[Rfam]
RNA: DUF805b RNA
RNA sequence: AUGGUGAUAUCCGAAAAACCAAUUUUAAAUAGAGUAGGAA
Numbered sequence: 001a002u003g004g005u006g007a008u009a010u011c012c013g014a015a016a017a018a019c020c021a022a023u024u025u026u027a028a029a030u031a032g033a034g035u036a037g038g039a040a
Stems, first nucleotide, its partner, number of pairs: 002021004010039003